[Rfam]
RNA sequence: GGGUGCCAGCUGCACGGUGCAGUGAGGCAGGUUAAAGAACAGCGCAGGUCGGGCCGCCAUGCG
Dot-bracket structure: ....(((.(((.........)))..)))..............(((((((......))).))))
Background: nhaA-I RNA: a 63-nucleotide RNA. It is one of the family's seed sequences. The family's consensus secondary structure is taken from published work. From the family's description: Acidobacteria, Alphaproteobacteria, Betaproteobacteria and Gammaproteobacteria, Verrucomicrobia, cand. division NC10.